This 61-nucleotide sequence from Gordonia jinhuaensis belongs to the Rfam family "Actino-pnp RNA". The family's RNA type in Rfam is cis-regulatory element. NCBI's taxonomy places the organism under Bacteria, Bacillati, Actinomycetota, Actinomycetes, Gordonia.
RNA sequence: AGCGGUCCUCGGUAGUGGCCGCCGGAACAUCUGGUUCCGGCCGCUUCGAUCGAUGGCCGUU
Dot-bracket structure: (((((((.(((((...(((.((((((((.....)))))))).)))...))))).)))))))
Numbered sequence: 001a002g003c004g005g006u007c008c009u010c011g012g013u014a015g016u017g018g019c020c021g022c023c024g025g026a027a028c029a030u031c032u033g034g035u036u037c038c039g040g041c042c043g044c045u046u047c048g049a050u051c052g053a054u055g056g057c058c059g060u061u
Stems, first nucleotide, its partner, number of pairs: 001061007009053005017045003021041008